[Rfam]
RNA sequence: UUAGUUUUGGGGUACGUGUCAGGAGUGCAUUUACAUAGAGGUUGCGUUGUAAAUGCACUAUCUGGUACGACAUUCCAGAGCAA
Numbered sequence: 001u002u003a004g005u006u007u008u009g010g011g012g013u014a015c016g017u018g019u020c021a022g023g024a025g026u027g028c029a030u031u032u033a034c035a036u037a038g039a040g041g042u043u044g045c046g047u048u049g050u051a052a053a054u055g056c057a058c059u060a061u062c063u064g065g066u067a068c069g070a071c072a073u074u075c076c077a078g079a080g081c082a083a
Stems, first nucleotide, its partner, number of pairs: 008077004015069009025058001027056009
This 83-nucleotide RNA from Pseudolycoriella hygida belongs to the Rfam family "mir-277 microRNA precursor family". The literature on the family includes a 2010 paper in BMC Genomics by Liu et al., "MicroRNAs of Bombyx mori identified by Solexa sequencing". The organism belongs to Pseudolycoriella, within Eukaryota. Gene Ontology terms of the family: RISC complex and miRNA-mediated post-transcriptional gene silencing.